[Rfam]
Source information:
The record is a 122-nucleotide RNA from Aliirhizobium cellulosilyticum, which matches "Rhizobiales sRNA Atu_C8" in Rfam. A reference for the family is Wilms et al. (2012), "Deep sequencing uncovers numerous small RNAs on all four replicons of the plant pathogen Agrobacterium tumefaciens", RNA Biol.
RNA sequence: GAAGAUUUCGAAGGCACUUAUUGUGGUGGGAACGCGCAUGGGCAGGACGGUGUAACCGUCCGGCGUUAGCCACCCAUGCGCGGAAAGACAGGCUCCUAAGGGGCCUUUUUUUAUGCCUUGUU
Numbered sequence: 001g002a003a004g005a006u007u008u009c010g011a012a013g014g015c016a017c018u019u020a021u022u023g024u025g026g027u028g029g030g031a032a033c034g035c036g037c038a039u040g041g042g043c044a045g046g047a048c049g050g051u052g053u054a055a056c057c058g059u060c061c062g063g064c065g066u067u068a069g070c071c072a073c074c075c076a077u078g079c080g081c082g083g084a085a086a087g088a089c090a091g092g093c094u095c096c097u098a099a100g101g102g103g104c105c106u107u108u109u110u111u112u113a114u115g116c117c118u119u120g121u122u
Stems, first nucleotide, its partner, number of pairs: 007028001009026001029118002033082010045061006063070002087107001090106007